[Rfam]
RNA sequence: AUGAUUCUAGUUUCAUUCAAGGCAAGUUUUUUCUUGACAUACAAAUAAUCAGGAAAAUACUGUCUUGAAUGAUACUUGGGUCAG
Dot-bracket structure: ..((((..(((.((((((((((......((((((.................)))))).....)))))))))).)))..))))..
Numbered sequence: 001a002u003g004a005u006u007c008u009a010g011u012u013u014c015a016u017u018c019a020a021g022g023c024a025a026g027u028u029u030u031u032u033c034u035u036g037a038c039a040u041a042c043a044a045a046u047a048a049u050c051a052g053g054a055a056a057a058u059a060c061u062g063u064c065u066u067g068a069a070u071g072a073u074a075c076u077u078g079g080g081u082c083a084g
Stems, first nucleotide, its partner, number of pairs: 003082004009076003013072010029057006